[Rfam]
RNA sequence: UAAGUGAAACAGAGGUGCUAAGGUAACUUGGCUGAGAAAUACUCUUAAUACCCGAUCAGAUUAGGAUCUGCGUGGGGAGUUUCAACAGGUAUCUA
Numbered sequence: 001u002a003a004g005u006g007a008a009a010c011a012g013a014g015g016u017g018c019u020a021a022g023g024u025a026a027c028u029u030g031g032c033u034g035a036g037a038a039a040u041a042c043u044c045u046u047a048a049u050a051c052c053c054g055a056u057c058a059g060a061u062u063a064g065g066a067u068c069u070g071c072g073u074g075g076g077g078a079g080u081u082u083c084a085a086c087a088g089g090u091a092u093c094u095a
Stems, first nucleotide, its partner, number of pairs: 006083005011045004016039001017032005051076004057070004
A member of the RNA family "TPP riboswitch aptamer (THI element)" from Basilea psittacipulmonis, 95 nucleotides long. Lineage of the source: Bacteria > Pseudomonadati > Betaproteobacteria > Basilea > Basilea psittacipulmonis. About the family: Vitamin B(1) in its active form thiamin pyrophosphate (TPP) is an essential coenzyme that is synthesised by coupling of pyrimidine and thiazole moieties in bacteria.